[Rfam]
This 137-nucleotide RNA sequence from Triticum aestivum belongs to the Rfam family "Small nucleolar RNA Z247". It scores 50 bits against the family's covariance model. Its family is annotated with nucleolus and RNA processing in the Gene Ontology. Lineage of the source: Eukaryota > Viridiplantae > Magnoliopsida > Poales > Triticum. By type it is a C/D-box small nucleolar RNA. Pairs were carried over by alignment from the consensus structure, which was predicted with PFOLD.
RNA sequence: GCACGAGGCAGUGCUGAGAUCAUCUCCCAUGUCUUGGCCGGCCUCGACCUCGACUACAACCCGGUUGUGCCGGCUAUUGCAGCGCGGGUCGAGCCCGUGACUUUACAUGAACUCUUCACCCAGCUGCUGAGCUUAGA
Numbered sequence: 001g002c003a004c005g006a007g008g009c010a011g012u013g014c015u016g017a018g019a020u021c022a023u024c025u026c027c028c029a030u031g032u033c034u035u036g037g038c039c040g041g042c043c044u045c046g047a048c049c050u051c052g053a054c055u056a057c058a059a060c061c062c063g064g065u066u067g068u069g070c071c072g073g074c075u076a077u078u079g080c081a082g083c084g085c086g087g088g089u090c091g092a093g094c095c096c097g098u099g100a101c102u103u104u105a106c107a108u109g110a111a112c113u114c115u116u117c118a119c120c121c122a123g124c125u126g127c128u129g130a131g132c133u134u135a136g137a
Stems, first nucleotide, its partner, number of pairs: 004136001006134003088108002092104002